[Rfam]
RNA: Glycine riboswitch aptamer
RNA sequence: GAACACAGCGCGGGAGAGCGUACGACCCCACCGGGUCUGCCACCGAAGGAGCAAGCUCCCCGCCAAUCUCUCAGGUAGACGUACCGCGCCGUGUUG
Numbered sequence: 001g002a003a004c005a006c007a008g009c010g011c012g013g014g015a016g017a018g019c020g021u022a023c024g025a026c027c028c029c030a031c032c033g034g035g036u037c038u039g040c041c042a043c044c045g046a047a048g049g050a051g052c053a054a055g056c057u058c059c060c061c062g063c064c065a066a067u068c069u070c071u072c073a074g075g076u077a078g079a080c081g082u083a084c085c086g087c088g089c090c091g092u093g094u095u096g
Base pairs, nucleotide, nucleotide: 006091008089009088010087011086012085013084020040021039022038042076043075044074045072046071049070050069051068055063056062